[Rfam]
RNA: Xanthine riboswitch aptamer (NMT1 RNA)
Organism: Aquirhabdus parva
Nucleotides: 064
Stems, first nucleotide, its partner, number of pairs: 006059005015049001018051002021047003025041007
Number, partner (000 for none) and nucleotide at each position: 001000u002000c003000c004000u005000u006059g007058a008057g009056u010055a011000g012000a013000a014000g015049c016000a017000g018051c019050u020000a021047g022046c023045g024000u025041c026040c027039a028038a029037c030036a031035g032000u033000c034000c035031u036030u037029g038028u039027u040026g041025g042000c043000u044000c045023c046022g047021u048000g049015g050019g051018g052000c053000a054000u055010u056009g057008c058007u059006c060000u061000u062000a063000g064000g